RNA sequence: UAAUCCAAAUUGAAAAGAGAACCAUGUAUAAACAUGAUUCCCUAGUCGUAAAGCCAUUAAGAUGGUGACGUUGUUAAUCAAAAAAAAAA
Numbered sequence: 001u002a003a004u005c006c007a008a009a010u011u012g013a014a015a016a017g018a019g020a021a022c023c024a025u026g027u028a029u030a031a032a033c034a035u036g037a038u039u040c041c042c043u044a045g046u047c048g049u050a051a052a053g054c055c056a057u058u059a060a061g062a063u064g065g066u067g068a069c070g071u072u073g074u075u076a077a078u079c080a081a082a083a084a085a086a087a088a089a
Base pairs, nucleotide, nucleotide: 023036024035025034026033053066054065055064056063057062

Shown here is an 89-nucleotide RNA sequence from Vagococcus fessus, a member of the family "RNA anti-toxin A". By type it is an antitoxin RNA. The source organism's lineage runs through Bacteria, Bacillati, Bacillota, Lactobacillales and Vagococcus. The family's consensus secondary structure was predicted with RNAalifold. The match comes from Rfam's covariance-model search (53 bits).